[Rfam]
RNA: Pestivirus 3' UTR SLI
Organism: Orthopestivirus ovis
RNA sequence: AGCUGAAAGGGAAUUCCUGACGUCCAAAGUUGGACUAAGGUAAAACCCUAACAGCCCC
Numbered sequence: 001a002g003c004u005g006a007a008a009g010g011g012a013a014u015u016c017c018u019g020a021c022g023u024c025c026a027a028a029g030u031u032g033g034a035c036u037a038a039g040g041u042a043a044a045a046c047c048c049u050a051a052c053a054g055c056c057c058c
Base pairs, nucleotide, nucleotide: 002055003054004053005052008049009048010047011046016040017039018038022035023034024033025032026031